[Rfam]
RNA: Small Cajal body specific RNA 6
Organism: Hucho hucho
RNA sequence: GGUCAAUGAUGUGAUGAUGUAAAAGGUCUGAUGCCCAGUUCCACUACCUGCUAUCCAUUGGCUCCUAACAGCCCCUGCUCUCCUCCCAGCCUGCUCUAGUUGUGCAUCGUUGGACACAGGGGCUGCUGACAUUGAGGAUGAGGUCAUAUCCUGUGUCUUUAAGAGACCAUGGAGUCACUGUGACAGACGUCCAACAGAACCAAUCACUAAGGAGUAUCAGGCUGUGGUAUGGGGCUGGGCCGCUGAUCUCAACUUUCAAACUGAGACC
Numbered sequence: 001g002g003u004c005a006a007u008g009a010u011g012u013g014a015u016g017a018u019g020u021a022a023a024a025g026g027u028c029u030g031a032u033g034c035c036c037a038g039u040u041c042c043a044c045u046a047c048c049u050g051c052u053a054u055c056c057a058u059u060g061g062c063u064c065c066u067a068a069c070a071g072c073c074c075c076u077g078c079u080c081u082c083c084u085c086c087c088a089g090c091c092u093g094c095u096c097u098a099g100u101u102g103u104g105c106a107u108c109g110u111u112g113g114a115c116a117c118a119g120g121g122g123c124u125g126c127u128g129a130c131a132u133u134g135a136g137g138a139u140g141a142g143g144u145c146a147u148a149u150c151c152u153g154u155g156u157c158u159u160u161a162a163g164a165g166a167c168c169a170u171g172g173a174g175u176c177a178c179u180g181u182g183a184c185a186g187a188c189g190u191c192c193a194a195c196a197g198a199a200c201c202a203a204u205c206a207c208u209a210a211g212g213a214g215u216a217u218c219a220g221g222c223u224g225u226g227g228u229a230u231g232g233g234g235c236u237g238g239g240c241c242g243c244u245g246a247u248c249u250c251a252a253c254u255u256u257c258a259a260a261c262u263g264a265g266a267c268c
Base pairs, nucleotide, nucleotide: 001268002267003266004265037249038248040246041245044227045226046225048224050222051221062214063213064212065211066128067127069125070124071123072122086113087112088111089110090109094104136192140191141190143188144187145186153178154177155176157174158173159172160171161170